[Rfam]
The family of this 79-nucleotide RNA sequence from Scleropages formosus is "mir-17 microRNA precursor family". The organism belongs to Scleropages, within Eukaryota. Gene Ontology terms of the family: miRNA-mediated post-transcriptional gene silencing and RISC complex. The family's consensus secondary structure was predicted with RNAalifold. From the family's description: This family represents the microRNA (miRNA) precursor mir-17, family, which includes mir-20, mir-91, and mir-103. miRNAs are transcribed as ~70nt precursors (modelled here) and subsequently processed by the Dicer enzyme to give a ~22nt product. In this case the mature sequence comes from the 3' arm of the precursor.

RNA sequence: AAUGUAGUGUCAAAGUGCUUACAGUGCAGGUAGUACUAUGAAAUGUCUACUGCAAUGGAGGCACUUCUAGCGCUACUUU
Numbered sequence: 001a002a003u004g005u006a007g008u009g010u011c012a013a014a015g016u017g018c019u020u021a022c023a024g025u026g027c028a029g030g031u032a033g034u035a036c037u038a039u040g041a042a043a044u045g046u047c048u049a050c051u052g053c054a055a056u057g058g059a060g061g062c063a064c065u066u067c068u069a070g071c072g073c074u075a076c077u078u079u
Stems, first nucleotide, its partner, number of pairs: 004076004009071002013066008022057002025054003029051005
The literature on the family includes a 2001 paper in Cell by Ambros, "microRNAs: tiny regulators with great potential".